[Rfam]
The record is a 116-nucleotide RNA sequence from Bacillus manliponensis, which matches "PyrR binding site" in Rfam.
The match comes from Rfam's covariance-model search (80 bits).
Rfam classes the family as a cis-regulatory element.
Rfam links the family to the GO terms pyrimidine nucleobase transport and pyrimidine nucleobase biosynthetic process.
RNA sequence: ACGCCCUUUUAAAUGUAGCCCCGUGAGGCUGCCAAAGGGUCUUGACUUCCGUAUGUCAAAUUUGGCGUACGAAAGUAUAGGACUCUUUGUGCAUAGGGCGCAAAGAGUUUUUUUUA
Numbered sequence: 001a002c003g004c005c006c007u008u009u010u011a012a013a014u015g016u017a018g019c020c021c022c023g024u025g026a027g028g029c030u031g032c033c034a035a036a037g038g039g040u041c042u043u044g045a046c047u048u049c050c051g052u053a054u055g056u057c058a059a060a061u062u063u064g065g066c067g068u069a070c071g072a073a074a075g076u077a078u079a080g081g082a083c084u085c086u087u088u089g090u091g092c093a094u095a096g097g098g099c100g101c102a103a104a105g106a107g108u109u110u111u112u113u114u115u116a
Stems, first nucleotide, its partner, number of pairs: 003040007015032006045076004050071009079111014